[Rfam]
The family of this 346-nucleotide RNA from Armillaria ostoyae is "Group I catalytic intron". Pairs were carried over by alignment from the consensus structure, which is taken from published work. Rfam links the family to the GO term Group I intron splicing. Group I catalytic introns are large self-splicing ribozymes. They catalyse their own excision from mRNA, tRNA and rRNA precursors in a wide range of organisms. The core secondary structure consists of 9 paired regions (P1-P9). A search with the family's covariance model found it, with a score of 117 bits.
Nucleotides: 346
Base pairs, nucleotide, nucleotide: 005026006025007024008023009022010021011020012019013018093274094273095272096271097270099268100267104215105214106213107212108211109210114206115205116204216254217253221249222248223247224246229242230241231240232239258326260325261324262323263322264321276312277311278310279309280308281307282306283305284304331344332343333342334341335340
Number, partner (000 for none) and nucleotide at each position: 001000c002000c003000a004000g005026a006025a007024a008023a009022g010021u011020u012019a013018a014000u015000g016000u017000g018013u019012u020011a021010g022009c023008u024007u025006u026005u027000a028000a029000g030000a031000g032000c033000a034000g035000a036000c037000u038000c039000a040000a041000a042000g043000u044000g045000u046000u047000c048000u049000g050000c051000u052000a053000g054000u055000g056000g057000u058000c059000u060000u061000a062000g063000u064000u065000c066000g067000c068000u069000a070000c071000g072000g073000u074000g075000a076000g077000a078000g079000c080000u081000a082000a083000g084000u085000a086000a087000c088000c089000g090000c091000g092000a093274g094273a095272c096271c097270g098000u099268c100267a101000a102000a103000u104215u105214g106213c107212g108211g109210g110000a111000a112000a113000g114206u115205c116204c117000u118000u119000a120000g121000a122000g123000c124000c125000u126000u127000u128000g129000c130000u131000a132000c133000c134000g135000c136000c137000u138000a139000c140000g141000c142000a143000u144000g145000g146000a147000a148000a149000c150000a151000u152000a153000g154000u155000g156000u157000a158000g159000u160000g161000c162000a163000c164000c165000a166000g167000g168000g169000u170000a171000a172000u173000g174000a175000c176000c177000u178000c179000g180000g181000g182000u183000a184000u185000g186000g187000u188000a189000a190000a191000a192000a193000c194000g195000c196000a197000a198000a199000g200000g201000a202000u203000u204116g205115g206114a207000u208000a209000a210109u211108c212107u213106g214105c215104a216254g217253c218000c219000a220000a221249g222248u223247c224246c225000u226000a227000c228000g229242g230241c231240u232239a233000u234000u235000u236000a237000c238000u239232u240231a241230g242229c243000u244000a245000u246224g247223g248222a249221u250000g251000c252000a253217g254216u255000u256000c257000a258326a259000c260325g261324a262323c263322u264321a265000g266000a267100u268099g269000g270097u271096g272095g273094u274093c275000g276312g277311u278310u279309c280308u281307g282306a283305c284304g285000c286000g287000u288000u289000a290000c291000a292000u293000u294000a295000u296000a297000a298000g299000c300000a301000a302000a303000a304284c305283g306282u307281c308280a309279g310278g311277g312276c313000u314000u315000a316000a317000g318000a319000u320000a321264u322263a323262g324261u325260c326258u327000g328000a329000c330000c331344c332343c333342u334341c335340a336000g337000a338000g339000a340335u341334g342333a343332g344331g345000c346000u